[Rfam]
RNA sequence: GGUGGGUUGCCCGAGCGGCCUAAGGGAACGGUCUUGAAAACCGUCGUGGCGCGAGUCACCGUGGGUUCAAAUCCCACACCCACCG
Numbered sequence: 001g002g003u004g005g006g007u008u009g010c011c012c013g014a015g016c017g018g019c020c021u022a023a024g025g026g027a028a029c030g031g032u033c034u035u036g037a038a039a040a041c042c043g044u045c046g047u048g049g050c051g052c053g054a055g056u057c058a059c060c061g062u063g064g065g066u067u068c069a070a071a072u073c074c075c076a077c078a079c080c081c082a083c084c085g
Stems, first nucleotide, its partner, number of pairs: 001084007010026003028044005061077005